[Rfam]
Shown here is a 279-nucleotide sequence from a Crocinitomicaceae bacterium, a member of the family "permuted transfer-messenger RNA". Pairs were carried over by alignment from the consensus structure, which is taken from published work. Taxonomically the source falls in Crocinitomicaceae (Bacteria, Bacteroidota, Flavobacteriia, Flavobacteriales). For this family Rfam cites "tmRDB (tmRNA database)" (Zwieb et al., Nucleic Acids Res, 2003). Bacterial tmRNA, also known as 10Sa RNA or SsrA, is named for its dual tRNA and mRNA-like properties. Rfam classes the family as a non-coding RNA gene.
RNA sequence: CGUUGUAUGACGCAAUGUGAAUUGUUUUUGGACAGGGGUUCGACUCCCCUCACCUCCACCAUAAGCGUUCUGGAGCAGGUUGUAGGCAAGUGAACAGUAAGACACUUAUCUACGUAAAUAUUCCUGUUUAUGAACUAUCAGAGCUUUUAUGAUGGGGGUGUACUGGCUUCGACAGGAUCAUGAAGCGGCGCUGACAACGUGGGGGGAGUUGCCCCGUAAAAAGCUAAACCUAAAAUAACUGCAAACGACAAUGUUUACGGUGCACGUCUAGCCGCUUAA
Numbered sequence: 001c002g003u004u005g006u007a008u009g010a011c012g013c014a015a016u017g018u019g020a021a022u023u024g025u026u027u028u029u030g031g032a033c034a035g036g037g038g039u040u041c042g043a044c045u046c047c048c049c050u051c052a053c054c055u056c057c058a059c060c061a062u063a064a065g066c067g068u069u070c071u072g073g074a075g076c077a078g079g080u081u082g083u084a085g086g087c088a089a090g091u092g093a094a095c096a097g098u099a100a101g102a103c104a105c106u107u108a109u110c111u112a113c114g115u116a117a118a119u120a121u122u123c124c125u126g127u128u129u130a131u132g133a134a135c136u137a138u139c140a141g142a143g144c145u146u147u148u149a150u151g152a153u154g155g156g157g158g159u160g161u162a163c164u165g166g167c168u169u170c171g172a173c174a175g176g177a178u179c180a181u182g183a184a185g186c187g188g189c190g191c192u193g194a195c196a197a198c199g200u201g202g203g204g205g206g207a208g209u210u211g212c213c214c215c216g217u218a219a220a221a222a223g224c225u226a227a228a229c230c231u232a233a234a235a236u237a238a239c240u241g242c243a244a245a246c247g248a249c250a251a252u253g254u255u256u257a258c259g260g261u262g263c264a265c266g267u268c269u270a271g272c273c274g275c276u277u278a279a
Base pairs, nucleotide, nucleotide: 001199002198003197004196005195012189013188024178025177026176028175029174030173034050035049036048037047038046051160052159053158054157055156056155057154200216201215202214203213